A member of the RNA family "c-di-GMP-I-GGC riboswitch aptamer" from Zoogloea ramigera, 80 nucleotides long.
The source organism's lineage runs through Bacteria, Pseudomonadati, Pseudomonadota, Betaproteobacteria and Zoogloea.
RNA sequence: CAAUUCAAAGGCAAACUGCAGGUAACUGCAGGACGCAAAGCCACGGGCCCUUUUGAGCAAGGGUAGCCGGGUUGCAAUUG
Numbered sequence: 001c002a003a004u005u006c007a008a009a010g011g012c013a014a015a016c017u018g019c020a021g022g023u024a025a026c027u028g029c030a031g032g033a034c035g036c037a038a039a040g041c042c043a044c045g046g047g048c049c050c051u052u053u054u055g056a057g058c059a060a061g062g063g064u065a066g067c068c069g070g071g072u073u074g075c076a077a078u079u080g
Stems, first nucleotide, its partner, number of pairs: 001080001004076001011036002016031006034066001039073004044069003047064005
The family is grouped with related families in Rfam's "c-di-GMP_I riboswitch clan".